Description:
Rfam assigns this 533-nucleotide part of an RNA from uncultured archaeon A07HR60 to the family "Archaeal large subunit ribosomal RNA". The match comes from Rfam's covariance-model search (2720 bits). The base pairs follow the family's consensus structure, which is taken from published work.
RNA sequence: GCUACUGUGCCAGCUGGUGGAUAGUUCGGCUCGAGAGCCGACGACGGACGUGCCAAGCUGCGAUAAGCCCGAGGGAGCCGCACGGAGGCGAAGAACUCGGGAUCUCCGAAUGGGAAUCCCCUCCGCAAUUGCUUUGCGCAAUGGGGAACACCCCGAAUUGAAACAUCUUAGUAGGGGUAGGAAGAGAACGCAACCGCGAUGUCGUUAGUAACCGCGAGUGAACACGAUCUAGUUCAAACCGAAGCCUUCACGGGCAAUGUGGUGUGUGGGCUGACUCUCAACGUCCGAUCGCUUCUGUGAAGUCUCCUGGAACGGAGCGUGAAACAGGGUGACAACCCCGUAACAGAAGACAGUACGACGUGCGUCAGUACCCGACUAGCAGGGACCGGAUAUUCUCUGUGAACGACUCAGGCAUCCCCUGAGAAAACUAAAUACUCCUCGAGACCGAUAGUGAACAAGUAGCGUGAGCGAACGCUGAAAAGCACCCCGAGAAGGGCGGUGCAAUAGGGCUUGAAAUCAGUUGGCGAUAGAGC
Dot-bracket structure: .......((((((((((.....(((..((((((((((.......(((((((........))).....((((((...(((.......)))......))))))...))))...(((....)))......(((((.....)))))......((((((.....((....))......))))).).........((....))...(((((.....((.....))....)))))..((((....(((..................))).........((((......((((..........(((...(.((((......)))))..(...).(((.......)))...)))...........))))...))))...........(((((((........)))))))......(((((.......)))))..)))).....)).)))))).))...............((....))....))...................................).....)))))))))).......